[Rfam]
Nucleotides: 119
Base pairs, nucleotide, nucleotide: 001030002029003028005026006025007024008023009022010021056112057111058110069098070097071096072095073094074093075092076091078089079088080087
Number, partner (000 for none) and nucleotide at each position: 001030g002029g003028g004000g005026a006025a007024c008023a009022u010021c011000c012000a013000u014000u015000u016000g017000u018000g019000g020000a021010g022009a023008u024007g025006u026005u027000g028003c029002c030001u031000g032000a033000u034000a035000c036000a037000a038000u039000c040000u041000u042000c043000c044000u045000a046000u047000a048000u049000u050000a051000a052000a053000a054000a055000a056112a057111c058110u059000g060000c061000u062000g063000u064000u065000u066000c067000c068000u069098g070097c071096u072095u073094g074093u075092a076091g077000u078089g079088c080087u081000u082000g083000a084000g085000c086000a087080a088079g089078u090000c091076c092075u093074g094073c095072a096071a097070g098069u099000c100000u101000c102000a103000a104000a105000u106000a107000g108000a109000c110058a111057g112056u113000g114000a115000c116000a117000a118000a119000u